[Rfam]
RNA sequence: UUCCAUGAAUGAUGAGAUCAAUCAUUUACAGUUAUCCCUGUCUGAUUAAUCUCUGCUGAAAUCUUGUAAUCUGACAUGGAA
Numbered sequence: 001u002u003c004c005a006u007g008a009a010u011g012a013u014g015a016g017a018u019c020a021a022u023c024a025u026u027u028a029c030a031g032u033u034a035u036c037c038c039u040g041u042c043u044g045a046u047u048a049a050u051c052u053c054u055g056c057u058g059a060a061a062u063c064u065u066g067u068a069a070u071c072u073g074a075c076a077u078g079g080a081a
Base pairs, nucleotide, nucleotide: 001081002080003079004078005077006076007075